[Rfam]
This 77-nucleotide RNA from Methylomonas lenta belongs to the Rfam family "c-di-GMP-I riboswitch aptamer". Gene Ontology term of the family: cyclic-di-GMP binding. Taxonomically the source falls in Methylomonas (Bacteria, Pseudomonadota, Gammaproteobacteria, Methylococcales). The base pairs follow the family's consensus structure, which is taken from published work.
RNA sequence: AACAGAUAAAGCCACACUUGUCGUAAGACAAGGUCGGAAAGCAAGAAUCUUAAUUCAAGAUCGUCCUUGCUGCCAAU
Numbered sequence: 001a002a003c004a005g006a007u008a009a010a011g012c013c014a015c016a017c018u019u020g021u022c023g024u025a026a027g028a029c030a031a032g033g034u035c036g037g038a039a040a041g042c043a044a045g046a047a048u049c050u051u052a053a054u055u056c057a058a059g060a061u062c063g064u065c066c067u068u069g070c071u072g073c074c075a076a077u
Stems, first nucleotide, its partner, number of pairs: 012037002017032006040071004045065002047061003